[Rfam]
RNA sequence: AUCUGACGAGGAUAGAGGAAGUCGGGGCAACCCGGCUGGGCGUGAAAUUCUCC
Numbered sequence: 001a002u003c004u005g006a007c008g009a010g011g012a013u014a015g016a017g018g019a020a021g022u023c024g025g026g027g028c029a030a031c032c033c034g035g036c037u038g039g040g041c042g043u044g045a046a047a048u049u050c051u052c053c
Stems, first nucleotide, its partner, number of pairs: 020037007
Notes:
The family of this 53-nucleotide RNA sequence from Natrinema limicola is "leuA-Halobacteria RNA". The family's RNA type in Rfam is cis-regulatory element.